The record is a 191-nucleotide sequence from Paenibacillus lutrae, which matches "Lysine riboswitch aptamer" in Rfam.
[Rfam]
RNA sequence: CGAUGAGGUAGAGGUUGCGGAUGCUAUCAGUAACCCGGGGGAGACGAACAGAGACGUCUGCGAAGCCGGGAGAAAGGAGCAGCCGCCGAAAUUCGGGGCAUCUUCUCAGAUACCGGAUUGGGUCCGCAUUCGAAUAGAAGCGGAACUGUCACUACUGCCCUUCCAAGCAGCGGUGAUGCGCUAUCUUCAUG
Numbered sequence: 001c002g003a004u005g006a007g008g009u010a011g012a013g014g015u016u017g018c019g020g021a022u023g024c025u026a027u028c029a030g031u032a033a034c035c036c037g038g039g040g041g042a043g044a045c046g047a048a049c050a051g052a053g054a055c056g057u058c059u060g061c062g063a064a065g066c067c068g069g070g071a072g073a074a075a076g077g078a079g080c081a082g083c084c085g086c087c088g089a090a091a092u093u094c095g096g097g098g099c100a101u102c103u104u105c106u107c108a109g110a111u112a113c114c115g116g117a118u119u120g121g122g123u124c125c126g127c128a129u130u131c132g133a134a135u136a137g138a139a140g141c142g143g144a145a146c147u148g149u150c151a152c153u154a155c156u157g158c159c160c161u162u163c164c165a166a167g168c169a170g171c172g173g174u175g176a177u178g179c180g181c182u183a184u185c186u187u188c189a190u191g
Stems, first nucleotide, its partner, number of pairs: 006186006017086004022081004034070005090119007100111002120147002123144005129138002149176005155170004